[Rfam]
Rfam assigns this 148-nucleotide sequence to the family "IMES-3 RNA motif". The base pairs follow the family's consensus structure, which is taken from published work.
RNA sequence: AAGAUAAAGACUGGGGGGUGUUAGAAGUUAAUUGCUCAGAGUGUCAUCGCAAGAUAGACAAUCUAAGUGAAAAACGGACAAAACCAACUCUGGAUCAAUAAACUGAGAUCGUCCACAACUCUCGAGUUGGAUCGCAGUGAAAGGCAAA
Number, nucleotide and partner (000 for none) at each position: 001a000002a000003g000004a000005u000006a000007a000008a000009g000010a000011c093012u092013g091014g090015g089016g088017g085018g084019u083020g000021u000022u000023a000024g000025a000026a000027g075028u074029u073030a000031a000032u070033u069034g068035c067036u066037c000038a064039g063040a062041g000042u000043g059044u058045c057046a055047u054048c053049g000050c000051a000052a000053g048054a047055u046056a000057g045058a044059c043060a000061a000062u040063c039064u038065a000066a036067g035068u034069g033070a032071a000072a000073a029074a028075c027076g000077g000078a000079c000080a000081a000082a000083a019084c018085c017086a000087a000088c016089u015090c014091u013092g012093g011094a000095u000096c000097a000098a000099u000100a000101a000102a138103c137104u136105g135106a000107g133108a132109u131110c130111g000112u000113c000114c000115a000116c129117a128118a127119c126120u125121c000122u000123c000124g000125a120126g119127u118128u117129g116130g110131a109132u108133c107134g000135c105136a104137g103138u102139g000140a000141a000142a000143g000144g000145c000146a000147a000148a000